RNA sequence: UUUGGCCUGGUUCAAGUAAUCCAGGAUAGGCUUGUGAUGUCCGGAAAGCCUAUUCGGGAUGACUUGGUUCAGGAAUGA
Numbered sequence: 001u002u003u004g005g006c007c008u009g010g011u012u013c014a015a016g017u018a019a020u021c022c023a024g025g026a027u028a029g030g031c032u033u034g035u036g037a038u039g040u041c042c043g044g045a046a047a048g049c050c051u052a053u054u055c056g057g058g059a060u061g062a063c064u065u066g067g068u069u070c071a072g073g074a075a076u077g078a
Stems, first nucleotide, its partner, number of pairs: 001078002006073005013066005019060003024055009

Shown here is a 78-nucleotide RNA from Danio rerio, a member of the family "mir-26 microRNA precursor family". For this family Rfam cites "Identification of novel genes coding for small expressed RNAs" (Lagos-Quintana et al., Science, 2001). Rfam's curators put it in the seed alignment. The base pairs follow the family's consensus structure, which was predicted with RNAalifold.